[Rfam]
RNA sequence: GGGGGCGGAUGGGGUCUGGUGGCCUCCUCGGUCUUCAAAACCGAUGCGACCCGGUUCCGCCGGGUUUGGUGGGUUCGAUUCCCGCACGCUUCC
Numbered sequence: 001g002g003g004g005g006c007g008g009a010u011g012g013g014g015u016c017u018g019g020u021g022g023c024c025u026c027c028u029c030g031g032u033c034u035u036c037a038a039a040a041c042c043g044a045u046g047c048g049a050c051c052c053g054g055u056u057c058c059g060c061c062g063g064g065u066u067u068g069g070u071g072g073g074u075u076c077g078a079u080u081c082c083c084g085c086a087c088g089c090u091u092c093c
Stems, first nucleotide, its partner, number of pairs: 001093007008085001011026006028044005048066004070084004
RNA: Selenocysteine transfer RNA